This 74-nucleotide RNA sequence from Actinokineospora terrae belongs to the Rfam family "tRNA". Taxonomically the source falls in Actinokineospora (Bacteria, Bacillati, Actinomycetota, Pseudonocardiaceae). The family's consensus secondary structure is taken from published work.
Nucleotides: 074
Stems, first nucleotide, its partner, number of pairs: 001073007010026004028044005050066005
Number, partner (000 for none) and nucleotide at each position: 001073g002072c003071c004070g005069c006068c007067u008000u009000a010026g011025c012024u013023c014000a015000g016000u017000c018000g019000g020000c021000c022000a023013g024012a025011g026010c027000g028044g029043u030042u031041c032040a033000c034000u035000c036000g037000u038000a039000a040032u041031g042030a043029a044028c045000a046000g047000g048000u049000c050066a051065a052064g053063g054062g055000u056000u057000c058000g059000a060000u061000u062054c063053c064052c065051u066050u067007a068006g069005g070004c071003g072002g073001c074000u